Shown here is a 190-nucleotide RNA sequence from Jeotgalibaca porci, a member of the family "Enterococcus sRNA 2410". The family's consensus secondary structure was predicted with RNAfold. Produced as 2 transcripts on Northern blot. Expressed in mid, late exponential and early stationary phases of growth. Expression remained uniform under daptomycin exposure. It scores 69 bits against the family's covariance model. The family's RNA type in Rfam is small RNA. For this family Rfam cites "Small RNAs in vancomycin-resistant Enterococcus faecium involved in daptomycin response and resistance" (Sinel et al., Sci Rep, 2017).

[Rfam]
RNA sequence: UUAGCUACUUUAGAUAGUUCUGUAGACACACGCAGUGGAUACAGACAUUUCAAACAUUGUUUGUAUCUAUGGCGGCUAGAGUGAGUUUGCGUGAGCAACUGCCACAUAGAUUAAAAUCUGAGUGGUGAUUGCGAAAAGGAAAACUUUCUUUUUACAAUAAGAAUUUGAGCGACCCAUUCAGAUUGUUGAU
Number, nucleotide and partner (000 for none) at each position: 001u079002u078003a077004g076005c075006u074007a000008c000009u000010u000011u069012a068013g067014a066015u065016a064017g000018u000019u045020c044021u043022g042023u041024a040025g000026a000027c037028a036029c035030a000031c000032g000033c000034a000035g029036u028037g027038g000039a000040u024041a023042c022043a021044g020045a019046c000047a000048u000049u000050u000051c063052a062053a061054a060055c059056a000057u000058u000059g055060u054061u053062u052063g051064u016065a015066u014067c013068u012069a011070u000071g000072g000073c000074g006075g005076c004077u003078a002079g001080a000081g000082u000083g146084a145085g144086u143087u142088u141089g000090c139091g000092u137093g000094a000095g000096c000097a000098a000099c000100u127101g126102c125103c124104a123105c122106a000107u120108a119109g118110a000111u000112u000113a000114a000115a000116a000117u000118c109119u108120g107121a000122g105123u104124g103125g102126u101127g100128a000129u000130u000131g000132c000133g000134a000135a000136a000137a092138g000139g090140a000141a088142a087143a086144c085145u084146u083147u000148c000149u000150u000151u000152u000153u000154a000155c000156a000157a000158u000159a000160a000161g000162a000163a000164u000165u000166u000167g000168a000169g000170c000171g000172a000173c000174c000175c000176a000177u000178u000179c000180a000181g000182a000183u000184u000185g000186u000187u000188g000189a000190u000